[Rfam]
RNA sequence: UCCUUAUCUAGAGUCAGGGGAGGAAAUUGGUCCUUAGAUCCUGCGGCAACCUCACUAUCAACAAGUUGAAAGGUGCCCAUUCCAACAAGCGAUAUGCUUGAAAGAUGAGGA
Numbered sequence: 001u002c003c004u005u006a007u008c009u010a011g012a013g014u015c016a017g018g019g020g021a022g023g024a025a026a027u028u029g030g031u032c033c034u035u036a037g038a039u040c041c042u043g044c045g046g047c048a049a050c051c052u053c054a055c056u057a058u059c060a061a062c063a064a065g066u067u068g069a070a071a072g073g074u075g076c077c078c079a080u081u082c083c084a085a086c087a088a089g090c091g092a093u094a095u096g097c098u099u100g101a102a103a104g105a106u107g108a109g110g111a
Stems, first nucleotide, its partner, number of pairs: 001111008013044001015043004022033003027085004045077004050073002052069003081103001086100006
Rfam assigns this 111-nucleotide RNA sequence from Lacicoccus alkaliphilus to the family "SAM riboswitch aptamer (S box leader)".
The source organism's lineage runs through Bacteria, Bacilli, Caryophanales, Lacicoccus and Lacicoccus alkaliphilus.
From the family's description: The SAM riboswitch is found upstream of a number of genes which code for proteins involved in methionine or cysteine biosynthesis in Gram-positive bacteria.